Annotation: This 49-nucleotide sequence from Cognatishimia maritima belongs to the Rfam family "SAM/SAH riboswitch aptamer". A search with the family's covariance model found it, with a score of 62 bits.

RNA sequence: UGUCUGUCACAACGGCUUCCUGGCGUGGCAGAUGAAACCUAAUGGAGCA
Numbered sequence: 001u002g003u004c005u006g007u008c009a010c011a012a013c014g015g016c017u018u019c020c021u022g023g024c025g026u027g028g029c030a031g032a033u034g035a036a037a038c039c040u041a042a043u044g045g046a047g048c049a
Stems, first nucleotide, its partner, number of pairs: 004031007013022002015048003019045002